[Rfam]
RNA: Mammalian CPEB3 ribozyme
RNA sequence: AAAUGCCCUAAUGGCCAUAGCAGAAGCGCUCACAUCGUGGACCUGUCAGAUUCUGACGAAUCUGUGAAUUCUGCU
Numbered sequence: 001a002a003a004u005g006c007c008c009u010a011a012u013g014g015c016c017a018u019a020g021c022a023g024a025a026g027c028g029c030u031c032a033c034a035u036c037g038u039g040g041a042c043c044u045g046u047c048a049g050a051u052u053c054u055g056a057c058g059a060a061u062c063u064g065u066g067a068a069u070u071c072u073g074c075u
Stems, first nucleotide, its partner, number of pairs: 013043002015040002019075007026038003047064007